U12 minor spliceosomal RNA: a 163-nucleotide RNA sequence from Mikania micrantha. The organism belongs to Mikania, within Eukaryota. Pairs were carried over by alignment from the consensus structure.

RNA sequence: UUGCCUUAAACUAAUGAGUAAGGAAAACAAAGCAACCGGUGAGAGCCGGUUGCCGCGCUACUCAUAAUAUAUUGUGCGCAUGAAUUUAUGGAGGGGUUAUAGGCUGGCCGAGGGCAGAUGCUGCUUACUUUGCAGAACUCUCUCGAGCGGGCCUCCCGAACCC
Numbered sequence: 001u002u003g004c005c006u007u008a009a010a011c012u013a014a015u016g017a018g019u020a021a022g023g024a025a026a027a028c029a030a031a032g033c034a035a036c037c038g039g040u041g042a043g044a045g046c047c048g049g050u051u052g053c054c055g056c057g058c059u060a061c062u063c064a065u066a067a068u069a070u071a072u073u074g075u076g077c078g079c080a081u082g083a084a085u086u087u088a089u090g091g092a093g094g095g096g097u098u099a100u101a102g103g104c105u106g107g108c109c110g111a112g113g114g115c116a117g118a119u120g121c122u123g124c125u126u127a128c129u130u131u132g133c134a135g136a137a138c139u140c141u142c143u144c145g146a147g148c149g150g151g152c153c154u155c156c157c158g159a160a161c162c163c
Stems, first nucleotide, its partner, number of pairs: 004023005032053008054078005094163005101154005107148001109145002112142003121135004